[Rfam]
RNA sequence: GAGACACCCCUAUGGAGCAGGACUUGCUUCACUGGGGCCUUGGAGCUCACUGAGUCUGUCCCUUGGGUGUGUUGCU
Dot-bracket structure: (.(((((.((((.((.(((.(((.....(((.((((.(....)..)))).))))))))).)).)))).))))).).
Numbered sequence: 001g002a003g004a005c006a007c008c009c010c011u012a013u014g015g016a017g018c019a020g021g022a023c024u025u026g027c028u029u030c031a032c033u034g035g036g037g038c039c040u041u042g043g044a045g046c047u048c049a050c051u052g053a054g055u056c057u058g059u060c061c062c063u064u065g066g067g068u069g070u071g072u073u074g075c076u
Stems, first nucleotide, its partner, number of pairs: 001075001003073005009067004014062002017059003021056003029053003033049004038043001
A member of the RNA family "mir-9229 microRNA precursor family" from Myotis myotis, 76 nucleotides long.
Taxonomically the source falls in Myotis (Eukaryota, Metazoa, Eumetazoa, Bilateria).
A search with the family's covariance model found it, with a score of 74 bits.